[Rfam]
RNA sequence: AAACAACAAAAUAAUUGAUCUCGUAUAAUCGCAGGAAUAUGGCCUGCAAGUCUCUACCGAGUUACCGUAAAUGACUCGACUACGAGUGGAUGUAGCCCUUUU
Numbered sequence: 001a002a003a004c005a006a007c008a009a010a011a012u013a014a015u016u017g018a019u020c021u022c023g024u025a026u027a028a029u030c031g032c033a034g035g036a037a038u039a040u041g042g043c044c045u046g047c048a049a050g051u052c053u054c055u056a057c058c059g060a061g062u063u064a065c066c067g068u069a070a071a072u073g074a075c076u077c078g079a080c081u082a083c084g085a086g087u088g089g090a091u092g093u094a095g096c097c098c099u100u101u102u
Stems, first nucleotide, its partner, number of pairs: 020086006029049001031047005058078007